This 446-nucleotide part of an RNA from Methylobacterium radiodurans belongs to the Rfam family "Bacterial large subunit ribosomal RNA".
Rfam 15.1 lists 51,934 matches to the family in 10,816 species.
Nucleotides: 446
Stems, first nucleotide, its partner, number of pairs: 001385006011024005026129001027127007036120001039116007051104001052102002057098003061094004068087002070084005133158010163174003178356004183352003189346003198343001200342006217316002221313010238295005244268003249263003269273001274289001278287002357375008386441001388438005396431003405425005411420003
Number, partner (000 for none) and nucleotide at each position: 001385c002384u003383c004382c005381g006380c007000g008000a009000a010000a011024g012023c013022u014021a015020u016000u017000u018000a019000g020015g021014u022013a023012g024011c025000g026129c027127c028126u029125c030124g031123c032122g033121u034000g035000u036120a037000u038000g039116u040115c041114c042113c043112a044111g045110g046000g047000g048000g049000u050000a051104g052102a053101g054000c055000a056000c057098u058097g059096g060000a061094u062093g063092g064091g065000c066000u067000a068087g069086g070084g071083c072082c073081g074080c075000c076000c077000a078000c079000a080074g081073c082072g083071g084070u085000a086069c087068c088000a089000a090000a091064c092063c093062c094061a095000a096059c097058c098057a099000a100000a101053c102052u103000c104051c105000g106000a107000a108000u109000a110045c111044c112043u113042g114041g115040g116039a117000a118000c119000u120036u121033g122032c123031g124030c125029g126028g127027g128000a129026g130000a131000c132000a133158c134157a135156c136155g137154g138153c139152g140151g141150g142149u143000g144000c145000u146000a147000a148000c149142g150141u151140c152139c153138g154137u155136c156135g157134u158133g159000g160000a161000g162000a163174g164173g165172g166000a167000a168000a169000c170000a171000a172165c173164c174163c175000u176000g177000a178356c179355c180354g181353a182000c183352a184351g185350c186000u187000a188000a189346g190345g191344c192000c193000c194000c195000c196000a197000a198343u199000u200342c201341g202340u203339g204338g205337c206000u207000a208000a209000g210000u211000g212000g213000g214000a215000a216000a217316g218315g219000a220000u221313g222312u223311g224310g225309g226308a227307c228306u229305c230304c231000c232000a233000a234000a235000a236000c237000a238295a239294c240293c241292a242291g243000g244268a245267g246266g247000u248000u249263g250262g251261c252000u253000u254000a255000g256000a257000a258000g259000c260000a261251g262250c263249c264000a265000u266246c267245c268244u269273u270000u271000a272000a273269a274289g275000a276000a277000a278287g279286c280000g281000u282000a283000a284000c285000a286279g287278c288000u289274c290000a291242c292241u293240g294239g295238u296000c297000u298000a299000a300000a301000u302000a303000a304230g305229g306228g307227g308226u309225c310224c311223u312222g313221c314000g315218c316217c317000g318000a319000a320000a321000a322000u323000g324000u325000a326000a327000c328000g329000g330000g331000g332000c333000u334000c335000a336000a337205g338204c339203c340202a341201c342200g343198a344191g345190c346189c347000g348000a349000a350185g351184c352183u353181u354180c355179g356178g357375g358374u359373g360372u361371g362370u363369a364368c365000g366000u367000u368364g369363u370362a371361c372360a373359c374358g375357c376000g377000g378000u379000a380006g381005c382004g383003g384002a385001g386441c387000g388438u389437u390436c391435c392434c393000u394000a395000g396431g397430c398429c399000u400000g401000c402000g403000a404000a405425g406424c407423g408422g409421c410000a411420c412419c413418u414000g415000c416000g417000a418413g419412g420411g421409g422408c423407c424406g425405u426000g427000g428000a429398g430397g431396u432000a433000u434392g435391g436390g437389a438388a439000g440000u441386g442000c443000g444000a445000a446000u